[Rfam]
RNA sequence: UUCUACUCACGUGACUGGCGAAAAGUCGGCUUCCACCAAGGAGGCGGGCGAUAAGGUGGAUACCACCGGGGAACGUGAGUUUUUCAUCAGCCGUUCGCCUGGGCAGCCCAA
Number, nucleotide and partner (000 for none) at each position: 001u000002u000003c000004u000005a080006c079007u078008c077009a076010c075011g074012u073013g000014a000015c070016u069017g099018g098019c097020g096021a095022a000023a000024a000025g000026u000027c000028g000029g000030c000031u000032u000033c000034c000035a000036c000037c000038a000039a000040g000041g000042a000043g000044g000045c000046g000047g000048g000049c000050g000051a000052u000053a000054a000055g000056g066057u065058g064059g063060a000061u000062a000063c059064c058065a057066c056067c000068g000069g016070g015071g000072a000073a012074c011075g010076u009077g008078a007079g006080u005081u000082u000083u000084u000085c000086a000087u000088c106089a000090g104091c103092c102093g000094u000095u021096c020097g019098c018099c017100u000101g000102g092103g091104c090105a000106g088107c000108c000109c000110a000111a000
Notes:
The family of this 111-nucleotide RNA sequence from Oxalobacteraceae bacterium IMCC9480 is "ZMP/ZTP riboswitch aptamer (pfl RNA motif)". The match comes from Rfam's covariance-model search (63 bits). Pairs were carried over by alignment from the consensus structure, which is taken from published work.